Bacterial RNase P class A: a 370-nucleotide RNA sequence from Tepidiforma thermophila. Lineage of the source: Bacteria > Bacillati > Tepidiformia > Tepidiformaceae > Tepidiforma.
RNA sequence: CCAGCAGGCCGGGCAGCCGCUCCCCGCCCCGUGCGGGGAGAGGAAAGUCCGGACUCCACCGGGCAGGGUGCCAGGUAACGCCUGGGCGGCGCGAGCCGACGGAAAGUGCAACAGAAACAUACCGCCUCCGGUCGCCCCCGGCGGCCGGCGGUAAGGGUGAAAUGGUGCGGUAAGAGCGCACCGGCGUCCCGGUAACGGGGCGGCCGUGCAAACCCCACCCGGAGCAAGGCCGAAUAGGGGAGGAGGGUGCCCGGCCCGCCACAACUCCCGGGUUGGCCGCUAGAGCGCGCCGGCGACGGCGCGCCCAGAGAGAUGGCUGCCGCCCCGCCUCCGCGGGGUACAGAAUCCGGCUUACAGGCCUGCUGGACGC
Numbered sequence: 001c002c003a004g005c006a007g008g009c010c011g012g013g014c015a016g017c018c019g020c021u022c023c024c025c026g027c028c029c030c031g032u033g034c035g036g037g038g039a040g041a042g043g044a045a046a047g048u049c050c051g052g053a054c055u056c057c058a059c060c061g062g063g064c065a066g067g068g069u070g071c072c073a074g075g076u077a078a079c080g081c082c083u084g085g086g087c088g089g090c091g092c093g094a095g096c097c098g099a100c101g102g103a104a105a106g107u108g109c110a111a112c113a114g115a116a117a118c119a120u121a122c123c124g125c126c127u128c129c130g131g132u133c134g135c136c137c138c139c140g141g142c143g144g145c146c147g148g149c150g151g152u153a154a155g156g157g158u159g160a161a162a163u164g165g166u167g168c169g170g171u172a173a174g175a176g177c178g179c180a181c182c183g184g185c186g187u188c189c190c191g192g193u194a195a196c197g198g199g200g201c202g203g204c205c206g207u208g209c210a211a212a213c214c215c216c217a218c219c220c221g222g223a224g225c226a227a228g229g230c231c232g233a234a235u236a237g238g239g240g241a242g243g244a245g246g247g248u249g250c251c252c253g254g255c256c257c258g259c260c261a262c263a264a265c266u267c268c269c270g271g272g273u274u275g276g277c278c279g280c281u282a283g284a285g286c287g288c289g290c291c292g293g294c295g296a297c298g299g300c301g302c303g304c305c306c307a308g309a310g311a312g313a314u315g316g317c318u319g320c321c322g323c324c325c326c327g328c329c330u331c332c333g334c335g336g337g338g339u340a341c342a343g344a345a346u347c348c349g350g351c352u353u354a355c356a357g358g359c360c361u362g363c364u365g366g367a368c369g370c
Stems, first nucleotide, its partner, number of pairs: 001366010011355001012321007020040008045353003049350005054224004061257004066220005071085005086100001087098004101215002106213002108209003122156002124152003128148008164182006184204001185202007228278004238269005247262003251258001285304008